[Rfam]
RNA sequence: GCCGAGCUUGGUAAUGUGAGCUUGUUACCUGAACGGGGGCUUUAAAAUGGUUGGAGCUUGUUCGUCCCAGUGGAAUAGGGGUCCUGGAGGCCGUUGUGUUGAUGGCCCGCCCGUUCCAAGUAGGGAUUAGGUCAUUGGGCCUUGGACGAAAGCUUGGGGGCUCACUGGCCCUAAAGAUUGAGGGAACCGCGUGAGGCUGGUUUCACAGAGCAGCGUCACCUCUCGCUCUCUUCUGUGGACGAAUUACGGGCCGACUCUCUUGGGGCCCAAAACCAAAACCCUGGGUGGACAUAGUCAACAACCAUUUUU
Numbered sequence: 001g002c003c004g005a006g007c008u009u010g011g012u013a014a015u016g017u018g019a020g021c022u023u024g025u026u027a028c029c030u031g032a033a034c035g036g037g038g039g040c041u042u043u044a045a046a047a048u049g050g051u052u053g054g055a056g057c058u059u060g061u062u063c064g065u066c067c068c069a070g071u072g073g074a075a076u077a078g079g080g081g082u083c084c085u086g087g088a089g090g091c092c093g094u095u096g097u098g099u100u101g102a103u104g105g106c107c108c109g110c111c112c113g114u115u116c117c118a119a120g121u122a123g124g125g126a127u128u129a130g131g132u133c134a135u136u137g138g139g140c141c142u143u144g145g146a147c148g149a150a151a152g153c154u155u156g157g158g159g160g161c162u163c164a165c166u167g168g169c170c171c172u173a174a175a176g177a178u179u180g181a182g183g184g185a186a187c188c189g190c191g192u193g194a195g196g197c198u199g200g201u202u203u204c205a206c207a208g209a210g211c212a213g214c215g216u217c218a219c220c221u222c223u224c225g226c227u228c229u230c231u232u233c234u235g236u237g238g239a240c241g242a243a244u245u246a247c248g249g250g251c252c253g254a255c256u257c258u259c260u261u262g263g264g265g266c267c268c269a270a271a272a273c274c275a276a277a278a279c280c281c282u283g284g285g286u287g288g289a290c291a292u293a294g295u296c297a298a299c300a301a302c303c304a305u306u307u308u309u
Base pairs, nucleotide, nucleotide: 001040002039003038004023005022006021007020008019009018010017028037029036030035044308045307046306047305048304049303050302051301052300053299056296058293061289062288063287064286065285066284068283069282070281072279076276078274079268080267081266082265083264084263085262086261089258090257093255103253104252105251106250107249108248109247112241115239116238117237118236119234120233122231123230124229125228126227128225130170131169132168133167134166136164137163138162139161140160141159142158143157145154147152171176180222181221182220183219189216190215191214192213197208198207199206
A member of the RNA family "Plant signal recognition particle RNA" from Cucurbita maxima, 309 nucleotides long. The family's RNA type in Rfam is non-coding RNA gene. On this family, see Regalia et al., Nucleic Acids Res 2002: "Prediction of signal recognition particle RNA genes". It scores 175 bits against the family's covariance model. Clan: SRP clan.